About this RNA:
The family of this 412-nucleotide sequence from Paenibacillus albiflavus is "Bacterial RNase P class A". NCBI's taxonomy places the organism under Bacteria, Bacillati, Bacilli, Paenibacillaceae, Paenibacillus. The family's RNA type in Rfam is ribozyme.

[Rfam]
RNA sequence: UAAGUUUGACAGACAAUCGCUGGCAGCAGGAGACUGCUGCGAGAGGAAAGUCCGGGCUCCAUAGGGCAGGGUGCUGGAUAACGUCCAGUCAGCGCGAGUUGAAGGAUAGUGCCACAGAAAUGGACCGCCGAUGGCGCUAUAAGCGCACAGGCAAGGGUGGAACCGUGGUGUAAGAGACCACGAGGAGUAUGGGUGACUAUAUUCCUGGUAAACCCCACUUGGAGCAAGACCUAAGAGGAAUGCAGUCGAUCCUAUGGAAUCGACAGUCUUAGCCCGAGACGCAUUCGGGUUGGUCGCUUGAGCUGUAUAGCAAUAUAUAGCCUAGAUAGAUGAUUGUCACUUCAAUGGUGGGAGGGGAGUUCACCCGUUUACCACUGGAAGUACAGAACCCGGCUUACGGCAAACUUACCGU
Numbered sequence: 001u002a003a004g005u006u007u008g009a010c011a012g013a014c015a016a017u018c019g020c021u022g023g024c025a026g027c028a029g030g031a032g033a034c035u036g037c038u039g040c041g042a043g044a045g046g047a048a049a050g051u052c053c054g055g056g057c058u059c060c061a062u063a064g065g066g067c068a069g070g071g072u073g074c075u076g077g078a079u080a081a082c083g084u085c086c087a088g089u090c091a092g093c094g095c096g097a098g099u100u101g102a103a104g105g106a107u108a109g110u111g112c113c114a115c116a117g118a119a120a121u122g123g124a125c126c127g128c129c130g131a132u133g134g135c136g137c138u139a140u141a142a143g144c145g146c147a148c149a150g151g152c153a154a155g156g157g158u159g160g161a162a163c164c165g166u167g168g169u170g171u172a173a174g175a176g177a178c179c180a181c182g183a184g185g186a187g188u189a190u191g192g193g194u195g196a197c198u199a200u201a202u203u204c205c206u207g208g209u210a211a212a213c214c215c216c217a218c219u220u221g222g223a224g225c226a227a228g229a230c231c232u233a234a235g236a237g238g239a240a241u242g243c244a245g246u247c248g249a250u251c252c253u254a255u256g257g258a259a260u261c262g263a264c265a266g267u268c269u270u271a272g273c274c275c276g277a278g279a280c281g282c283a284u285u286c287g288g289g290u291u292g293g294u295c296g297c298u299u300g301a302g303c304u305g306u307a308u309a310g311c312a313a314u315a316u317a318u319a320g321c322c323u324a325g326a327u328a329g330a331u332g333a334u335u336g337u338c339a340c341u342u343c344a345a346u347g348g349u350g351g352g353a354g355g356g357g358a359g360u361u362c363a364c365c366c367g368u369u370u371a372c373c374a375c376u377g378g379a380a381g382u383a384c385a386g387a388a389c390c391c392g393g394c395u396u397a398c399g400g401c402a403a404a405c406u407u408a409c410c411g412u
Stems, first nucleotide, its partner, number of pairs: 001408008010399001012338007020043002023040006048396003052393005057224004064275004069220005074088005089103001090101004104215002109213002111209003125156002127152003132149002134146004164182006184205009228295004238286006266280005302321008